[Rfam]
RNA: Prion pseudoknot
RNA sequence: UCAUGGUGGUGGCUGGGGGCAACCCCAUGGUGGCGGAGGUUGG
Numbered sequence: 001u002c003a004u005g006g007u008g009g010u011g012g013c014u015g016g017g018g019g020c021a022a023c024c025c026c027a028u029g030g031u032g033g034c035g036g037a038g039g040u041u042g043g
Stems, first nucleotide, its partner, number of pairs: 001030006